[Rfam]
RNA sequence: GGACGAGCAUUGCUUUGUGGUUACUUCGUAUUUUACAAAAUGAUCGUUUUGCCAAACAAUUGUGUGUGUUCACUCCAAACCACUGGCGCUCUCUUGUCCCUUU
Numbered sequence: 001g002g003a004c005g006a007g008c009a010u011u012g013c014u015u016u017g018u019g020g021u022u023a024c025u026u027c028g029u030a031u032u033u034u035a036c037a038a039a040a041u042g043a044u045c046g047u048u049u050u051g052c053c054a055a056a057c058a059a060u061u062g063u064g065u066g067u068g069u070u071c072a073c074u075c076c077a078a079a080c081c082a083c084u085g086g087c088g089c090u091c092u093c094u095u096g097u098c099c100c101u102u103u
Base pairs, nucleotide, nucleotide: 002098003097004096005095006094007093012087013086014085017083018082019081020080028075